[Rfam]
Nucleotides: 136
Base pairs, nucleotide, nucleotide: 001059002058003057004056007050008049012044013043014042015041017039019036020035021034022033023032072128074126075125076124077123078122079121084118085117086115087114088113089112091109092108093107094106095105096104
Number, partner (000 for none) and nucleotide at each position: 001059g002058c003057c004056u005000g006000g007050u008049g009000g010000u011000u012044c013043c014042u015041g016000g017039a018000g019036u020035c021034g022033g023032c024000u025000c026000c027000a028000a029000a030000g031000u032023g033022c034021u035020g036019a037000a038000c039017u040000g041015c042014a043013g044012g045000u046000u047000u048000u049008u050007g051000u052000u053000a054000a055000c056004a057003g058002g059001c060000a061000c062000a063000u064000a065000u066000u067000a068000a069000u070000g071000u072128c073000u074126g075125c076124a077123g078122u079121u080000u081000u082000a083000u084118g085117c086115a087114u088113g089112g090000a091109g092108g093107c094106u095105g096104u097000c098000u099000c100000u101000a102000u103000a104096g105095c106094a107093g108092c109091c110000u111000u112089c113088c114087a115086u116000a117085g118084c119000c120000c121079g122078g123077c124076u125075g126074c127000a128072g129000a130000u131000a132000c133000a134000c135000c136000u